[Rfam]
RNA sequence: UUUUACCUGGCAGUGUAGUUAGUGAUUGGUACUAUUAGCAAUCAGCUAACUACACUGCCUAGUAACG
Numbered sequence: 001u002u003u004u005a006c007c008u009g010g011c012a013g014u015g016u017a018g019u020u021a022g023u024g025a026u027u028g029g030u031a032c033u034a035u036u037a038g039c040a041a042u043c044a045g046c047u048a049a050c051u052a053c054a055c056u057g058c059c060u061a062g063u064a065a066c067g
Stems, first nucleotide, its partner, number of pairs: 003065004009059002012056011023044006030037001
The family of this 67-nucleotide sequence from Hipposideros armiger is "mir-34 microRNA precursor family".
Human mir-34a was discovered computationally and later experimentally verified. The mature sequence is excised from the 5' arm of the hairpin.
Taxonomically the source falls in Hipposideros (Eukaryota, Sarcopterygii, Theria, Boreoeutheria).
A reference for the family is Lim et al. (2003), "Vertebrate microRNA genes", Science.
Clan: mir-34 clan.